The record is a 76-nucleotide RNA from Crocodylus porosus, which matches "Mammalian CPEB3 ribozyme" in Rfam. It scores 46 bits against the family's covariance model. Lineage of the source: Eukaryota > Opisthokonta > Gnathostomata > Amniota > Crocodylus.

RNA sequence: AUCGCAAGUUUGAGGCUACAGCAGAAGUGCUCAUGGCACGGCGUGUCAGAUUGCAAUGAAAUCUGUGAAUUCUGCU
Numbered sequence: 001a002u003c004g005c006a007a008g009u010u011u012g013a014g015g016c017u018a019c020a021g022c023a024g025a026a027g028u029g030c031u032c033a034u035g036g037c038a039c040g041g042c043g044u045g046u047c048a049g050a051u052u053g054c055a056a057u058g059a060a061a062u063c064u065g066u067g068a069a070u071u072c073u074g075c076u
Stems, first nucleotide, its partner, number of pairs: 015042003020076007027039003047065006